Shown here is a 158-nucleotide sequence, a member of the family "RAGATH-9 RNA". It is one of the family's seed sequences. By type it is a small RNA. A reference for the family is Weinberg et al. (2015), "New classes of self-cleaving ribozymes revealed by comparative genomics analysis", Nat Chem Biol.
RNA sequence: CCAAUCAACCCGAAAGAACUGUAAAUAUACCAGAACCCUAAUGGAAGUUCGUAAGAACUAGAGUACAAUGGCUAUACAACGGCAAUCCUAUAUAGGAUAGAAGAAGGAUAGGGGUUAUCUGCAAAAUAAGGUAUACAAAUAUGCAGAACAGUUCUUUU
Number, nucleotide and partner (000 for none) at each position: 001c000002c000003a000004a000005u000006c000007a000008a000009c000010c000011c000012g158013a157014a156015a155016g154017a153018a152019c151020u150021g149022u000023a000024a000025a000026u000027a000028u000029a115030c114031c113032a000033g000034a000035a000036c000037c000038c000039u000040a000041a000042u067043g066044g000045a000046a000047g058048u057049u056050c055051g000052u000053a000054a000055g050056a049057a048058c047059u000060a000061g000062a000063g000064u000065a000066c043067a042068a000069u000070g000071g083072c082073u081074a000075u000076a000077c000078a000079a000080c000081g073082g072083c071084a000085a098086u097087c096088c095089u094090a000091u000092a000093u000094a089095g088096g087097a086098u085099a000100g000101a000102a000103g000104a000105a000106g000107g000108a000109u000110a000111g000112g000113g031114g030115u029116u000117a000118u147119c146120u145121g144122c143123a142124a000125a000126a000127u000128a000129a000130g000131g000132u000133a000134u000135a000136c000137a000138a000139a000140u000141a000142u123143g122144c121145a120146g119147a118148a000149c021150a020151g019152u018153u017154c016155u015156u014157u013158u012